[Rfam]
RNA sequence: CGUCUCCUCCAUGUCUCCUCUGAUAUGGAUUCAGCCCGCCGAAUGGCGGGCUUUUUUUU
Number, nucleotide and partner (000 for none) at each position: 001c000002g000003u000004c000005u000006c000007c000008u029009c028010c027011a026012u025013g024014u023015c022016u000017c000018c000019u000020c000021u000022g015023a014024u013025a012026u011027g010028g009029a008030u000031u000032c000033a052034g051035c050036c049037c048038g047039c046040c045041g000042a000043a000044u000045g040046g039047c038048g037049g036050g035051c034052u033053u000054u000055u000056u000057u000058u000059u000
A member of the RNA family "Betaproteobacteria toxic small RNA" from Mycetohabitans endofungorum, 59 nucleotides long.
About the family: Overexpression in amino aid rich medium attenuates growth, suggesting role in repressing amino acid intake and metabolism.
The match comes from Rfam's covariance-model search (70 bits).
The family's consensus secondary structure was predicted with WAR.